[Rfam]
The record is a 115-nucleotide sequence from Alkalihalophilus pseudofirmus, which matches "BsrF" in Rfam. Rfam classes the family as a small RNA. The source organism's lineage runs through Bacteria, Bacillati, Bacilli, Alkalihalophilus and Alkalihalophilus pseudofirmus. A search with the family's covariance model found it, with a score of 82 bits. The family's consensus secondary structure was predicted with WAR.

RNA sequence: GCGAUGAGCUAAUUUGCAUAAGACGAGAUUGACGCGCCUUUUAGGCAAGGCACUAUGUGGAGUGCUGUCUCUCGCCGCAAUACGCACAAAAGACGCCUUUAUUUAUAAAGGCGUC
Numbered sequence: 001g002c003g004a005u006g007a008g009c010u011a012a013u014u015u016g017c018a019u020a021a022g023a024c025g026a027g028a029u030u031g032a033c034g035c036g037c038c039u040u041u042u043a044g045g046c047a048a049g050g051c052a053c054u055a056u057g058u059g060g061a062g063u064g065c066u067g068u069c070u071c072u073c074g075c076c077g078c079a080a081u082a083c084g085c086a087c088a089a090a091a092g093a094c095g096c097c098u099u100u101a102u103u104u105a106u107a108a109a110g111g112c113g114u115c
Stems, first nucleotide, its partner, number of pairs: 014080004024074005031069003036046002049066002052063003092115009